[Rfam]
RNA sequence: GUCCACUGCCCGCCGACGGCAGCGGAGCCGGGGACCCAACCGACCUUGGGGUGAAUCGGCCCAACUCCCUGACGGGAGACGGCCGUAGGGCAAACCUUCCGAACCACCCGCCCGAACCCGACAGCUAACUCGGUAGGCGGAGCAUGGAAGGAGU
Numbered sequence: 001g002u003c004c005a006c007u008g009c010c011c012g013c014c015g016a017c018g019g020c021a022g023c024g025g026a027g028c029c030g031g032g033g034a035c036c037c038a039a040c041c042g043a044c045c046u047u048g049g050g051g052u053g054a055a056u057c058g059g060c061c062c063a064a065c066u067c068c069c070u071g072a073c074g075g076g077a078g079a080c081g082g083c084c085g086u087a088g089g090g091c092a093a094a095c096c097u098u099c100c101g102a103a104c105c106a107c108c109c110g111c112c113c114g115a116a117c118c119c120g121a122c123a124g125c126u127a128a129c130u131c132g133g134u135a136g137g138c139g140g141a142g143c144a145u146g147g148a149a150g151g152a153g154u
Stems, first nucleotide, its partner, number of pairs: 002026003027134006037048002049119003057085004088113004
A member of the RNA family "c-di-AMP riboswitch aptamer (ydaO/yuaA leader)" from Streptomyces davaonensis, 154 nucleotides long.
Lineage of the source: Bacteria > Actinomycetota > Actinomycetes > Streptomyces > Streptomyces davaonensis.
Rfam links the family to the GO terms cyclic-di-AMP binding and regulation of gene expression.
Pairs were carried over by alignment from the consensus structure.
Rfam's curators write: This family represents a conserved RNA structure found upstream of the ydaO and yuaA genes in Bacillus subtilis and related genes in other bacteria.